[Rfam]
RNA sequence: AGGAGGAAUAACCCCCGUGACUGCGGCAGCUCUGGAAACCUGGAUUUAGCUCCCACAGUAACUCCGGAGCUCUCUGUCUGCAGGGCCUGGAGGCUCGGGGCCGGG
Numbered sequence: 001a002g003g004a005g006g007a008a009u010a011a012c013c014c015c016c017g018u019g020a021c022u023g024c025g026g027c028a029g030c031u032c033u034g035g036a037a038a039c040c041u042g043g044a045u046u047u048a049g050c051u052c053c054c055a056c057a058g059u060a061a062c063u064c065c066g067g068a069g070c071u072c073u074c075u076g077u078c079u080g081c082a083g084g085g086c087c088u089g090g091a092g093g094c095u096c097g098g099g100g101c102c103g104g105g
Stems, first nucleotide, its partner, number of pairs: 003096003009089002012085003019078003023074001025072001028071009040058003
Dot-bracket structure: ..(((...((.(((....(((.(.(..(((((((((...(((.............)))....)))))))))).).)))....)))..))....))).........
RNA: mir-8834 microRNA precursor family